[Rfam]
RNA sequence: AGGCAACGUGAAAGGGGCCGGGCCAAUGAGCCAUGAGGCCAGGCCCUUGAGACAGGAGGCACA
Numbered sequence: 001a002g003g004c005a006a007c008g009u010g011a012a013a014g015g016g017g018c019c020g021g022g023c024c025a026a027u028g029a030g031c032c033a034u035g036a037g038g039c040c041a042g043g044c045c046c047u048u049g050a051g052a053c054a055g056g057a058g059g060c061a062c063a
Stems, first nucleotide, its partner, number of pairs: 014047006021040004028062001030060003
This 63-nucleotide RNA sequence from Liparis tanakae belongs to the Rfam family "Ma3 gene ribosomal frameshift signal". For this family Rfam cites "A functional -1 ribosomal frameshift signal in the human paraneoplastic Ma3 gene" (Wills et al., J Biol Chem, 2006). Its family is annotated with translational frameshifting in the Gene Ontology.